[Rfam]
Nucleotides: 079
Stems, first nucleotide, its partner, number of pairs: 002013003025071007033063007
Number, partner (000 for none) and nucleotide at each position: 001000u002013g003012g004011u005000a006000a007000a008000u009000g010000c011004a012003c013002c014000g015000u016000g017000a018000u019000u020000u021000u022000a023000a024000u025071u026070c027069u028068c029067u030066g031065a032000a033063u034062a035061g036060a037059a038058a039057a040000c041000a042000a043000a044000a045000a046000a047000a048000u049000c050000c051000c052000u053000u054000u055000g056000u057039u058038u059037u060036u061035u062034u063033g064000g065031u066030u067029a068028g069027g070026g071025a072000u073000u074000u075000u076000u077000u078000u079000c